[Rfam]
RNA: LOOT RNA
RNA sequence: GACCUAACCCGUAGGGCAACUUACGGCACGGUCAAAAAUCGUUGAACGCAGAAAGCUCCUAGUCAGAGCACGCGUUCAACGUCGUAUCGGGAAACCUUUACGGGUCUCGCAAGAGACC
Number, nucleotide and partner (000 for none) at each position: 001g033002a032003c031004c030005u000006a000007a000008c000009c026010c025011g024012u023013a022014g021015g020016g000017c000018a000019a000020c015021u014022u013023a012024c011025g010026g009027c000028a000029c000030g004031g003032u002033c001034a000035a000036a000037a000038a000039u000040c081041g080042u079043u078044g077045a076046a075047c074048g073049c072050a000051g000052a000053a000054a000055g069056c068057u067058c066059c000060u000061a000062g000063u000064c000065a000066g058067a057068g056069c055070a000071c000072g049073c048074g047075u046076u045077c044078a043079a042080c041081g040082u000083c102084g101085u100086a099087u000088c000089g096090g095091g000092a000093a000094a000095c090096c089097u000098u000099u086100a085101c084102g083103g118104g117105u116106c115107u114108c113109g000110c000111a000112a000113g108114a107115g106116a105117c104118c103